[Rfam]
RNA sequence: GCGACGGGACGACCCUUCGCAGCAGACCGAACCGGUGGGGACGACCCCA
Dot-bracket structure: ((((.(((....))).))))...............(((((....)))))
RNA: Guanidine-II riboswitch aptamer (mini-ykkC)
Organism: Sinimarinibacterium flocculans